[Rfam]
RNA sequence: AUAUAGCAUCUGCAGAGUUACCCUUUGGGUACGCCAACCGAGCUGUCAGCCACGGUGGUCCAGUUUGGAUGCGAAUUGUAGAACAAUUAAAACUGACAAA
Numbered sequence: 001a002u003a004u005a006g007c008a009u010c011u012g013c014a015g016a017g018u019u020a021c022c023c024u025u026u027g028g029g030u031a032c033g034c035c036a037a038c039c040g041a042g043c044u045g046u047c048a049g050c051c052a053c054g055g056u057g058g059u060c061c062a063g064u065u066u067g068g069a070u071g072c073g074a075a076u077u078g079u080a081g082a083a084c085a086a087u088u089a090a091a092a093c094u095g096a097c098a099a100a
Base pairs, nucleotide, nucleotide: 006072007071008070009069010068017032019031020030021029022028023027033059034058035057038055039054040053042050043049074088075087076086077085078084079083
Dot-bracket structure: .....(((((......(.(((((...))))))(((..(((.((.....))..))).)))........))))).((((((...))))))............
This 100-nucleotide sequence from Prevotella sp. CAG:474 belongs to the Rfam family "SAM-I/IV (S-adenosyl methionine) riboswitch aptamer". The organism belongs to Prevotella, within Bacteria. For this family Rfam cites "The aptamer core of SAM-IV riboswitches mimics the ligand-binding site of SAM-I riboswitches" (Weinberg et al., RNA, 2008). Gene Ontology terms of the family: S-adenosylmethionine metabolic process and regulation of gene expression.